[Rfam]
Background
A member of the RNA family "permuted transfer-messenger RNA" from Desulfonauticus submarinus, 311 nucleotides long. Rfam classes the family as a non-coding RNA gene. The family's consensus secondary structure is taken from published work. Bacterial tmRNA, also known as 10Sa RNA or SsrA, is named for its dual tRNA and mRNA-like properties.
RNA sequence: GCUGGUUAGAGCAUGCGGCUCAUAUCCGCAGAGUCGGGGGUUCAAGUCCCUCCCUCGCUACCAAAGAAGAAAAAACUCCUGAAAGUUAAACUUUCAGGAGUUUUUAUUUAUUUUAGCUCUUGCCAAGGAAUAGGAAAGGUAUUAAUUUAAAAUAGUUCUUUAAUAUUUCCCCACCUAAUAUGGGGGCGAAACGGCUUCGACGGGGAUGGUUGAGGUCAAGGUGGCAGGCCGAGGUGCUGCGAGGUCCUCGUAAAACACGCAGCAAACGAAUAAAUGCCAACGAUAAUUACGAAUACGCUCUGGCUGCUUAA
Numbered sequence: 001g002c003u004g005g006u007u008a009g010a011g012c013a014u015g016c017g018g019c020u021c022a023u024a025u026c027c028g029c030a031g032a033g034u035c036g037g038g039g040g041u042u043c044a045a046g047u048c049c050c051u052c053c054c055u056c057g058c059u060a061c062c063a064a065a066g067a068a069g070a071a072a073a074a075a076c077u078c079c080u081g082a083a084a085g086u087u088a089a090a091c092u093u094u095c096a097g098g099a100g101u102u103u104u105u106a107u108u109u110a111u112u113u114u115a116g117c118u119c120u121u122g123c124c125a126a127g128g129a130a131u132a133g134g135a136a137a138g139g140u141a142u143u144a145a146u147u148u149a150a151a152a153u154a155g156u157u158c159u160u161u162a163a164u165a166u167u168u169c170c171c172c173a174c175c176u177a178a179u180a181u182g183g184g185g186g187c188g189a190a191a192c193g194g195c196u197u198c199g200a201c202g203g204g205g206a207u208g209g210u211u212g213a214g215g216u217c218a219a220g221g222u223g224g225c226a227g228g229c230c231g232a233g234g235u236g237c238u239g240c241g242a243g244g245u246c247c248u249c250g251u252a253a254a255a256c257a258c259g260c261a262g263c264a265a266a267c268g269a270a271u272a273a274a275u276g277c278c279a280a281c282g283a284u285a286a287u288u289a290c291g292a293a294u295a296c297g298c299u300c301u302g303g304c305u306g307c308u309u310a311a
Stems, first nucleotide, its partner, number of pairs: 001229003005225001014218002027205001029203001031201001036052005053188001055186002058183002230250004